Annotation: Selenocysteine insertion sequence 1: a 65-nucleotide RNA sequence from Stegodyphus mimosarum. From the family's description: The incorporation of selenocysteine into a protein sequence is directed by an in-frame UGA codon (usually a stop codon) within the coding region of the mRNA. Selenoprotein mRNAs contain a conserved secondary structure in the 3' UTR that is required for the distinction of UGA stop from UGA selenocysteine. The match comes from Rfam's covariance-model search (40 bits).
Nucleotides: 065
Base pairs, nucleotide, nucleotide: 001065002064003063004062005061015048016047017046018045019044020043021042022041023040029037031035
Number, partner (000 for none) and nucleotide at each position: 001065u002064u003063g004062u005061g006000u007000u008000u009000c010000a011000u012000g013000a014000u015048a016047a017046g018045c019044u020043a021042u022041a023040c024000g025000u026000a027000a028000a029037c030000a031035a032000u033000u034000a035031u036000g037029g038000c039000g040023g041022u042021a043020u044019a045018g046017u047016u048015u049000g050000g051000a052000u053000g054000u055000u056000c057000u058000c059000a060000a061005c062004a063003c064002a065001a